This 505-nucleotide sequence from Streptomyces zinciresistens belongs to the Rfam family "Saccharopolyspora sRNA 350".
RNA sequence: CGGGCGGUGUACUCCCAGAUGGCGUCGGGGUCGACCAGCGCGGCGUCGCCGAAGUAGGCGCCGUCCGCGAGGACGCCGAGGACCGCGUCGUCGCCGUAGGGGCCGGUGCCGAUCUUCUCGACCCUGCCGUGCGCCAGCAGGUACACCUCGCCCGUCGGGCUGCCGAAGGAGGCGAUGACCUCGCCCGCGGCGAACUCGCGCUGCCGGCAGCGCCGGGCGAGCUCGGCGAGCACCUCCUCGUCCUCGUACGACCGCAACGCGGGCAGUUCGCCCAGCUCGGCGGGGAUGACCUCGACCUGGUCGCCGGUCUUGACGAAGGUGAUGCGGCCGUCCCCGACGGCGUAGGUCAGUCGCCGGUUCACCCGGUACGUGCCGCCCUGCACGUUCACCCAGGGCAGCGUCCGCAGCAGCCAGCGGGAGCUGAUCUCCUGCAUCUGCGGCGCGGACUUGGUCGUGGUGGCCAGGUUCCGCGCGGCCGCGGUGCCGAGACUCUGCUGCGUCUUGG
Numbered sequence: 001c002g003g004g005c006g007g008u009g010u011a012c013u014c015c016c017a018g019a020u021g022g023c024g025u026c027g028g029g030g031u032c033g034a035c036c037a038g039c040g041c042g043g044c045g046u047c048g049c050c051g052a053a054g055u056a057g058g059c060g061c062c063g064u065c066c067g068c069g070a071g072g073a074c075g076c077c078g079a080g081g082a083c084c085g086c087g088u089c090g091u092c093g094c095c096g097u098a099g100g101g102g103c104c105g106g107u108g109c110c111g112a113u114c115u116u117c118u119c120g121a122c123c124c125u126g127c128c129g130u131g132c133g134c135c136a137g138c139a140g141g142u143a144c145a146c147c148u149c150g151c152c153c154g155u156c157g158g159g160c161u162g163c164c165g166a167a168g169g170a171g172g173c174g175a176u177g178a179c180c181u182c183g184c185c186c187g188c189g190g191c192g193a194a195c196u197c198g199c200g201c202u203g204c205c206g207g208c209a210g211c212g213c214c215g216g217g218c219g220a221g222c223u224c225g226g227c228g229a230g231c232a233c234c235u236c237c238u239c240g241u242c243c244u245c246g247u248a249c250g251a252c253c254g255c256a257a258c259g260c261g262g263g264c265a266g267u268u269c270g271c272c273c274a275g276c277u278c279g280g281c282g283g284g285g286a287u288g289a290c291c292u293c294g295a296c297c298u299g300g301u302c303g304c305c306g307g308u309c310u311u312g313a314c315g316a317a318g319g320u321g322a323u324g325c326g327g328c329c330g331u332c333c334c335c336g337a338c339g340g341c342g343u344a345g346g347u348c349a350g351u352c353g354c355c356g357g358u359u360c361a362c363c364c365g366g367u368a369c370g371u372g373c374c375g376c377c378c379u380g381c382a383c384g385u386u387c388a389c390c391c392a393g394g395g396c397a398g399c400g401u402c403c404g405c406a407g408c409a410g411c412c413a414g415c416g417g418g419a420g421c422u423g424a425u426c427u428c429c430u431g432c433a434u435c436u437g438c439g440g441c442g443c444g445g446a447c448u449u450g451g452u453c454g455u456g457g458u459g460g461c462c463a464g465g466u467u468c469c470g471c472g473c474g475g476c477c478g479c480g481g482u483g484c485c486g487a488g489a490c491u492c493u494g495c496u497g498c499g500u501c502u503u504g505g
Base pairs, nucleotide, nucleotide: 006390007389008388009387011385012384016380018328021325025322026321027320031316032315036312037311038310040308041307045305047303048302050300052298054233055232059228060227061226062225063224065111067109068108075103077102082097083096085094086093117221118220119219120218122216123215126213127212130209132206133205135203136202137201141197143196149192150191156187157186158185159184160183161178235295236294240290241289242288244286245285249283252280253279254278256277258275259271260270261269329342330341331340332339353377355375356374357373360372361371362370391431392430393429394428395427397425399423400422403418405416407415437476438475440473442471443470444469445468446467447465448464449463450462451461452460477504478503481498482497487496488495
The family has 2 seed sequences and 1,170 matches in Rfam 15.1. The family's RNA type in Rfam is antisense RNA. The match comes from Rfam's covariance-model search (161 bits). NCBI's taxonomy places the organism under Bacteria, Bacillati, Actinomycetota, Streptomyces, Streptomyces zinciresistens. For this family Rfam cites "Prediction and characterization of small non-coding RNAs related to secondary metabolites in Saccharopolyspora erythraea" (Liu et al., PLoS One, 2013).